The record is a 102-nucleotide RNA sequence from Gracilibacillus dipsosauri, which matches "Purine riboswitch aptamer" in Rfam. NCBI's taxonomy places the organism under Bacteria, Bacillati, Bacillota, Bacillaceae, Gracilibacillus.
[Rfam]
Nucleotides: 102
Base pairs, nucleotide, nucleotide: 018088019087020086021085022084023083024082025081029049031047032046033045034044035043058078059077060076061075062074063073064072
Number, partner (000 for none) and nucleotide at each position: 001000a002000a003000u004000a005000u006000c007000a008000u009000u010000a011000u012000a013000c014000a015000a016000a017000u018088c019087a020086c021085u022084c023083g024082u025081a026000u027000a028000a029049u030000c031047g032046u033045a034044g035043g036000g037000a038000u039000a040000u041000g042000g043035c044034c045033u046032a047031c048000a049029a050000g051000u052000u053000u054000c055000u056000a057000c058078c059077a060076g061075a062074u063073u064072a065000c066000c067000g068000u069000a070000a071000a072064u073063g074062a075061u076060c077059u078058g079000a080000c081025u082024a083023u084022g085021a086020g087019u088018g089000a090000g091000c092000a093000a094000u095000g096000a097000a098000g099000g100000u101000u102000u
The match comes from Rfam's covariance-model search (92 bits).